The record is a 192-nucleotide sequence from Lipomyces starkeyi, which matches "Small nucleolar RNA snR8" in Rfam. Gene Ontology terms of the family: nucleolus and RNA processing. The match comes from Rfam's covariance-model search (59 bits). Clan: SNORA56 clan. For this family Rfam cites "Genetic analysis of small nuclear RNAs in Saccharomyces cerevisiae: viable sextuple mutant" (Parker et al., Mol Cell Biol, 1988).
RNA sequence: UUGACACAAAUGUCCCUUCUAUUCACUGCGUCGUUUCAAAGGAAAUUUUUUUUGGUAUAAGCGAACGGAGGGGAAAAGAAUGGGUAGAACGAUAAGUUCUUUUUACGAAUUUCGAAGCAAGGUGUUACCUCAUACCGUACUUUCUCAUUCUUGUCUGAGAUGAUCGUGCGGGAACAAACUUGCUGGACAUAU
Numbered sequence: 001u002u003g004a005c006a007c008a009a010a011u012g013u014c015c016c017u018u019c020u021a022u023u024c025a026c027u028g029c030g031u032c033g034u035u036u037c038a039a040a041g042g043a044a045a046u047u048u049u050u051u052u053u054g055g056u057a058u059a060a061g062c063g064a065a066c067g068g069a070g071g072g073g074a075a076a077a078g079a080a081u082g083g084g085u086a087g088a089a090c091g092a093u094a095a096g097u098u099c100u101u102u103u104u105a106c107g108a109a110u111u112u113c114g115a116a117g118c119a120a121g122g123u124g125u126u127a128c129c130u131c132a133u134a135c136c137g138u139a140c141u142u143u144c145u146c147a148u149u150c151u152u153g154u155c156u157g158a159g160a161u162g163a164u165c166g167u168g169c170g171g172g173a174a175c176a177a178a179c180u181u182g183c184u185g186g187a188c189a190u191a192u
Stems, first nucleotide, its partner, number of pairs: 014084002017080002026070002029067002032063005118185002124179002135171003139167002149158002